[Rfam]
RNA sequence: AUGGGGUUUCACCAUGUUGCCCAGGAGUUUGAGACCAGCCUGGGCAACAUGGUGAAAUCCCGU
Number, nucleotide and partner (000 for none) at each position: 001a000002u000003g000004g000005g000006g000007u057008u056009u055010c054011a053012c052013c051014a050015u000016g000017u000018u000019g045020c044021c043022c042023a041024g040025g039026a000027g000028u000029u038030u037031g036032a000033g000034a000035c000036c031037a030038g029039c025040c024041u023042g022043g021044g020045c019046a000047a000048c000049a000050u014051g013052g012053u011054g010055a009056a008057a007058u000059c000060c000061c000062g000063u000